[Rfam]
RNA sequence: UCGGCGGACCGGGCCCCUCUGGCAUGUGCAGAAACGCACAUGUGAUGUCGGACGCUAGA
Numbered sequence: 001u002c003g004g005c006g007g008a009c010c011g012g013g014c015c016c017c018u019c020u021g022g023c024a025u026g027u028g029c030a031g032a033a034a035c036g037c038a039c040a041u042g043u044g045a046u047g048u049c050g051g052a053c054g055c056u057a058g059a
Stems, first nucleotide, its partner, number of pairs: 006053001009051004022043008
RNA: terC RNA